[Rfam]
Nucleotides: 066
Stems, first nucleotide, its partner, number of pairs: 009063003012059002016057004021053005028046001031043004
Number, partner (000 for none) and nucleotide at each position: 001000a002000g003000u004000c005000a006000a007000g008000a009063g010062u011061c012059u013058u014000g015000g016057c017056a018055c019054c020000g021053u022052u023051u024050u025049g026000g027000u028046g029000a030000u031043c032042g033041a034040a035000u036000u037000u038000c039000u040034u041033u042032u043031g044000c045000c046028u047000u048000g049025u050024g051023a052022a053021a054019g055018g056017u057016g058013a059012a060000g061011g062010a063009c064000a065000u066000g
The record is a 66-nucleotide sequence from Rhizobium sp. Root1212, which matches "S-element" in Rfam. Rfam describes the family as follows. This family represents a group of S-elements from p42d and related plasmids. The S-element has multiple functions and is believed to act as a negative regulator of repC transcription, be required for efficient replication and act as a translational enhancer of repC. The source organism's lineage runs through Bacteria, Pseudomonadati, Alphaproteobacteria, Rhizobiaceae and Rhizobium. Pairs were carried over by alignment from the consensus structure, which is taken from published work.